[Rfam]
RNA sequence: UGGCGCCCAACGUGGGCCUUGGAUACUGGAGGCAUCAUGAGGGAGACGACAGAAAAAGGAAAUAGUACACUCGCUAAAUCUCAAGCAAUUCGGAGACGUGCCGCGGGAGCCUGCAGUGACCAAACCGAAGGUAAGUCAAGCCGUCCGAAUCAUGGGGCAAGAAUUAAGCCAGCAUCAUAUUUAUGUUAUACAGUUAAGGGAAGCUCUCAAGACAAGAGGAGUAAAGGUUAAGACUGAGGAUUUAUUUCAUUUCUUUGAUUUUGUAAAGGACAUUUGUCCCU
Numbered sequence: 001u002g003g004c005g006c007c008c009a010a011c012g013u014g015g016g017c018c019u020u021g022g023a024u025a026c027u028g029g030a031g032g033c034a035u036c037a038u039g040a041g042g043g044a045g046a047c048g049a050c051a052g053a054a055a056a057a058g059g060a061a062a063u064a065g066u067a068c069a070c071u072c073g074c075u076a077a078a079u080c081u082c083a084a085g086c087a088a089u090u091c092g093g094a095g096a097c098g099u100g101c102c103g104c105g106g107g108a109g110c111c112u113g114c115a116g117u118g119a120c121c122a123a124a125c126c127g128a129a130g131g132u133a134a135g136u137c138a139a140g141c142c143g144u145c146c147g148a149a150u151c152a153u154g155g156g157g158c159a160a161g162a163a164u165u166a167a168g169c170c171a172g173c174a175u176c177a178u179a180u181u182u183a184u185g186u187u188a189u190a191c192a193g194u195u196a197a198g199g200g201a202a203g204c205u206c207u208c209a210a211g212a213c214a215a216g217a218g219g220a221g222u223a224a225a226g227g228u229u230a231a232g233a234c235u236g237a238g239g240a241u242u243u244a245u246u247u248c249a250u251u252u253c254u255u256u257g258a259u260u261u262u263g264u265a266a267a268g269g270a271c272a273u274u275u276g277u278c279c280c281u
Stems, first nucleotide, its partner, number of pairs: 006031001008029001012026003035049002038046001085132002089128002099122001102118003106114001140158002144156004166207001168204002216256006225243005266281001268279004
About this RNA
Mason-Pfizer monkey virus packaging signal: a 281-nucleotide sequence from Nannospalax galili. NCBI's taxonomy places the organism under Eukaryota, Bilateria, Craniata, Vertebrata, Nannospalax. Its family is annotated with viral genome packaging in the Gene Ontology. The match comes from Rfam's covariance-model search (152 bits). A reference for the family is Harrison et al. (1995), "Secondary structure model of the Mason-Pfizer monkey virus 5' leader sequence: identification of a structural motif common to a variety of retroviruses", J Virol. About the family: This family represents a group of sequences that are related to the Mason-Pfizer monkey virus (MPMV) packaging signal. The packaging signal is located in the 5' UTR and is required for specific RNA encapsidation.